Annotation:
A member of the RNA family "tRNA" from Solimonas aquatica, 82 nucleotides long. Gene Ontology term of the family: triplet codon-amino acid adaptor activity. Transfer RNA (tRNA) molecules are approximately 80 nucleotides in length. It scores 60 bits against the family's covariance model. It is annotated as a transfer RNA.

RNA sequence: GCGACCGUGGCGGAAUCGGUAGACGCAGGGGACUUAAAAUCCCCCGCCUUCGGGCGUGCCGGUUCGAUUCCGGCCGGUCGCA
Number, nucleotide and partner (000 for none) at each position: 001g081002c080003g079004a078005c077006c076007g075008u000009g000010g026011c025012g024013g000014a000015a000016u000017c000018g000019g000020u000021a000022g000023a000024c012025g011026c010027a000028g044029g043030g042031g041032a040033c000034u000035u000036a000037a000038a000039a000040u032041c031042c030043c029044c028045c000046g000047c000048c000049u000050u000051c000052g000053g000054g000055c000056g000057u000058g074059c073060c072061g071062g070063u000064u000065c000066g000067a000068u000069u000070c062071c061072g060073g059074c058075c007076g006077g005078u004079c003080g002081c001082a000